[Rfam]
RNA sequence: UGAGAUAGAAUUAGCGUUUGGAAAAGCAAUUUUACGUUGAUUCUGUCUCAUG
Numbered sequence: 001u002g003a004g005a006u007a008g009a010a011u012u013a014g015c016g017u018u019u020g021g022a023a024a025a026g027c028a029a030u031u032u033u034a035c036g037u038u039g040a041u042u043c044u045g046u047c048u049c050a051u052g
Stems, first nucleotide, its partner, number of pairs: 001050017018029003